[Rfam]
RNA: cspA thermoregulator
Organism: Tolumonas auensis
RNA sequence: CUCGGCCUGUACAUCAGACCUAUUUAUGAAAGACAUUUUGAUUGAAGUUAAGACCCCUGCCAAUUCUUACCGAUUGUGCCGUUGUAAUAAUAUUUUCUCAGUGCCCCAUAAGUAUCGAUAGAUAAAUCCGGCCAUUAUUGCCUUUGUGGCACAAAAAUUUAUUUCUUAGGAAAAUGUUAUGUCUAAAGUUAACGGUUCAGUUAAGUGGUUCAACGAAACUAAAGGUUUUGGCUUCCUGUCUCAGGACAACGGUGGCAAAGACGUGUUCGUUCACUUCUCAGCUAUCGCUUCUACCGGUUUCAAAACCCUGGCUGAAGGCCAAGCGGUAUCUUUCGAUAUCGAAGAAGGUCAACGCGGCCCAUCAGCUGUGAACGUAACUGUUCGCUAACUGAUACUGACGUAAUAUUUUUACGUCACAAAAAAACCUGCUGCGGCAGGUUUUUUUAUU
Numbered sequence: 001c002u003c004g005g006c007c008u009g010u011a012c013a014u015c016a017g018a019c020c021u022a023u024u025u026a027u028g029a030a031a032g033a034c035a036u037u038u039u040g041a042u043u044g045a046a047g048u049u050a051a052g053a054c055c056c057c058u059g060c061c062a063a064u065u066c067u068u069a070c071c072g073a074u075u076g077u078g079c080c081g082u083u084g085u086a087a088u089a090a091u092a093u094u095u096u097c098u099c100a101g102u103g104c105c106c107c108a109u110a111a112g113u114a115u116c117g118a119u120a121g122a123u124a125a126a127u128c129c130g131g132c133c134a135u136u137a138u139u140g141c142c143u144u145u146g147u148g149g150c151a152c153a154a155a156a157a158u159u160u161a162u163u164u165c166u167u168a169g170g171a172a173a174a175u176g177u178u179a180u181g182u183c184u185a186a187a188g189u190u191a192a193c194g195g196u197u198c199a200g201u202u203a204a205g206u207g208g209u210u211c212a213a214c215g216a217a218a219c220u221a222a223a224g225g226u227u228u229u230g231g232c233u234u235c236c237u238g239u240c241u242c243a244g245g246a247c248a249a250c251g252g253u254g255g256c257a258a259a260g261a262c263g264u265g266u267u268c269g270u271u272c273a274c275u276u277c278u279c280a281g282c283u284a285u286c287g288c289u290u291c292u293a294c295c296g297g298u299u300u301c302a303a304a305a306c307c308c309u310g311g312c313u314g315a316a317g318g319c320c321a322a323g324c325g326g327u328a329u330c331u332u333u334c335g336a337u338a339u340c341g342a343a344g345a346a347g348g349u350c351a352a353c354g355c356g357g358c359c360c361a362u363c364a365g366c367u368g369u370g371a372a373c374g375u376a377a378c379u380g381u382u383c384g385c386u387a388a389c390u391g392a393u394a395c396u397g398a399c400g401u402a403a404u405a406u407u408u409u410u411a412c413g414u415c416a417c418a419a420a421a422a423a424a425c426c427u428g429c430u431g432c433g434g435c436a437g438g439u440u441u442u443u444u445u446a447u448u
Base pairs, nucleotide, nucleotide: 004020005019007017008016009015027244031241032240033239034238047234051233052232054231055230056225057224058223067218068217071215072214074212076210078209079208080207083181084180085179086178087177088176089175096170097169098168100166101165111127113125140150141149142148183195184194247341249339251337260268261267273327274326275325278323281320282318283317286311347360348359350357362392363391364390365389368385369384370383371382372381373380396416397415399413400412401411402410418445419444420443421442422441423440424439425438426437427436428435429434